[Rfam]
RNA: mir-8364 microRNA precursor family
Organism: Pristionchus pacificus
RNA sequence: UCCUCAUUCCACACGCUCUCUCGCAGGUCAGAGAUCCGAGAGAGUGCGCGAGAUGAGGAGA
Numbered sequence: 001u002c003c004u005c006a007u008u009c010c011a012c013a014c015g016c017u018c019u020c021u022c023g024c025a026g027g028u029c030a031g032a033g034a035u036c037c038g039a040g041a042g043a044g045u046g047c048g049c050g051a052g053a054u055g056a057g058g059a060g061a
Base pairs, nucleotide, nucleotide: 001059002058003057004056005055006054007053010050012048014046015045016044017043019041020040021039022038